Rfam assigns this 170-nucleotide RNA sequence from Handroanthus impetiginosus to the family "U4 spliceosomal RNA". It scores 53 bits against the family's covariance model. By type it is a spliceosomal small nuclear RNA. Rfam's curators write: U4 small nuclear RNA (U4 snRNA) is a component of the major U2-dependent spliceosome.
RNA sequence: AUCUUUGCACAUGGGACAAUGAUGUAGAUUCUAACAGUCACGCGUCUAAUGAGAUUCUAAGCAAGGUUGCAUCUAAUGCUGGUUGGAAACUAUUUCCAAACCCUCUCUUGGCCUUGGGCUUGACCUUUGGCCCUUGAGAAUUUUUGAAAAGGCUCCCUCUAAUCCAAGCU
Numbered sequence: 001a002u003c004u005u006u007g008c009a010c011a012u013g014g015g016a017c018a019a020u021g022a023u024g025u026a027g028a029u030u031c032u033a034a035c036a037g038u039c040a041c042g043c044g045u046c047u048a049a050u051g052a053g054a055u056u057c058u059a060a061g062c063a064a065g066g067u068u069g070c071a072u073c074u075a076a077u078g079c080u081g082g083u084u085g086g087a088a089a090c091u092a093u094u095u096c097c098a099a100a101c102c103c104u105c106u107c108u109u110g111g112c113c114u115u116g117g118g119c120u121u122g123a124c125c126u127u128u129g130g131c132c133c134u135u136g137a138g139a140a141u142u143u144u145u146g147a148a149a150a151g152g153c154u155c156c157c158u159c160u161a162a163u164c165c166a167a168g169c170u
Stems, first nucleotide, its partner, number of pairs: 021073005027068003105138003110132004116126002151170004